[Rfam]
Rfam assigns this 85-nucleotide sequence from Firmicutes bacterium CAG:240 to the family "S10-Clostridia ribosomal protein leader". By type it is a cis-regulatory leader. The match comes from Rfam's covariance-model search (38 bits).

RNA sequence: AUUAUGCGAUGAAGCGGGAGAUUGCUCGUUUUUCGAGGUAACUUCCGUGGAGUAUGUCCGGUACCGAUGCCAUUUCGGUACACAA
Numbered sequence: 001a002u003u004a005u006g007c008g009a010u011g012a013a014g015c016g017g018g019a020g021a022u023u024g025c026u027c028g029u030u031u032u033u034c035g036a037g038g039u040a041a042c043u044u045c046c047g048u049g050g051a052g053u054a055u056g057u058c059c060g061g062u063a064c065c066g067a068u069g070c071c072a073u074u075u076c077g078g079u080a081c082a083c084a085a
Stems, first nucleotide, its partner, number of pairs: 014048003018045003025037004055084003061081007